RNA sequence: GGCUCCCGGGGCAUGGAGCCUGCUUCUCCCUCUGCCUAUGUCUCUGCCUCUCAUGAAUAAAUAAAAUCUUAAAAAAAAAAAAUUUUUUUUUUUUAAGAUUUUAUUUAUUCAUGAGAGGCAGAGACAUAGGCAGAGGGAGAAGCAGGCUCCAUGCCCCGGGAGCC
Numbered sequence: 001g002g003c004u005c006c007c008g009g010g011g012c013a014u015g016g017a018g019c020c021u022g023c024u025u026c027u028c029c030c031u032c033u034g035c036c037u038a039u040g041u042c043u044c045u046g047c048c049u050c051u052c053a054u055g056a057a058u059a060a061a062u063a064a065a066a067u068c069u070u071a072a073a074a075a076a077a078a079a080a081a082a083u084u085u086u087u088u089u090u091u092u093u094u095a096a097g098a099u100u101u102u103a104u105u106u107a108u109u110c111a112u113g114a115g116a117g118g119c120a121g122a123g124a125c126a127u128a129g130g131c132a133g134a135g136g137g138a139g140a141a142g143c144a145g146g147c148u149c150c151a152u153g154c155c156c157c158g159g160g161a162g163c164c
Stems, first nucleotide, its partner, number of pairs: 002163002005160006012153007020145018042123004047118012060105002064102003
A member of the RNA family "MIR7725 microRNA precursor family" from Vulpes vulpes, 164 nucleotides long. Lineage of the source: Eukaryota > Chordata > Tetrapoda > Caniformia > Vulpes. Pairs were carried over by alignment from the consensus structure, which was predicted with RNAalifold.